Rfam assigns this 173-nucleotide RNA sequence from Motilimonas pumila to the family "Lysine riboswitch aptamer".

RNA sequence: CUUAAUAGUAGAGGUGCGCAUUUUAUUAGUAUAUUUGGUUAGGUUGACGCCGGUAAGCCAAAUGGAAAGGAAACUGUGCCGAAGCGAUGUAAGGCCGUCAUGCCAACUCGCUGGUGAUGCACUUAAUAAGUGUAUUACUGUCAUAGUUUUCACUAUGGGGAGCUACCGCACAC
Numbered sequence: 001c002u003u004a005a006u007a008g009u010a011g012a013g014g015u016g017c018g019c020a021u022u023u024u025a026u027u028a029g030u031a032u033a034u035u036u037g038g039u040u041a042g043g044u045u046g047a048c049g050c051c052g053g054u055a056a057g058c059c060a061a062a063u064g065g066a067a068a069g070g071a072a073a074c075u076g077u078g079c080c081g082a083a084g085c086g087a088u089g090u091a092a093g094g095c096c097g098u099c100a101u102g103c104c105a106a107c108u109c110g111c112u113g114g115u116g117a118u119g120c121a122c123u124u125a126a127u128a129a130g131u132g133u134a135u136u137a138c139u140g141u142c143a144u145a146g147u148u149u150u151c152a153c154u155a156u157g158g159g160g161a162g163c164u165a166c167c168g169c170a171c172a173c
Stems, first nucleotide, its partner, number of pairs: 006168001008166004016079005022073003032064008083112005089107002093103001113139011141158007